RNA sequence: AGGUUAUUUUGAGGACAAUUUCUUAAUAAUCCUUUGUAGCGCUCCCAUGCCUCAUAAAGUGACUCACCCAUAUUUUUCUCAAUAUUAUCCAUUGCCUUCUUGAGUUU
Numbered sequence: 001a002g003g004u005u006a007u008u009u010u011g012a013g014g015a016c017a018a019u020u021u022c023u024u025a026a027u028a029a030u031c032c033u034u035u036g037u038a039g040c041g042c043u044c045c046c047a048u049g050c051c052u053c054a055u056a057a058a059g060u061g062a063c064u065c066a067c068c069c070a071u072a073u074u075u076u077u078c079u080c081a082a083u084a085u086u087a088u089c090c091a092u093u094g095c096c097u098u099c100u101u102g103a104g105u106u107u
Stems, first nucleotide, its partner, number of pairs: 001107001003105002005102002057074002
This 107-nucleotide RNA sequence from Lactuca sativa belongs to the Rfam family "Plant small nucleolar RNA R71". Rfam 15.1 lists 278,378 matches to the family in 216 species. By type it is a C/D-box small nucleolar RNA. Gene Ontology terms of the family: RNA processing and nucleolus. Taxonomically the source falls in Lactuca (Eukaryota, Viridiplantae, Streptophyta, Euphyllophyta). The family's consensus secondary structure was predicted with PFOLD.